[Rfam]
RNA sequence: UGGAGAGAGGAGAGAAGCAGGGUCUGAUCCAUAGCCUCUGUGGCAGCUAUUGAUCAGCACUUGCCUCUCUCUUUCGCUCUG
Numbered sequence: 001u002g003g004a005g006a007g008a009g010g011a012g013a014g015a016a017g018c019a020g021g022g023u024c025u026g027a028u029c030c031a032u033a034g035c036c037u038c039u040g041u042g043g044c045a046g047c048u049a050u051u052g053a054u055c056a057g058c059a060c061u062u063g064c065c066u067c068u069c070u071c072u073u074u075c076g077c078u079c080u081g
Stems, first nucleotide, its partner, number of pairs: 008073008017064004024057006032049004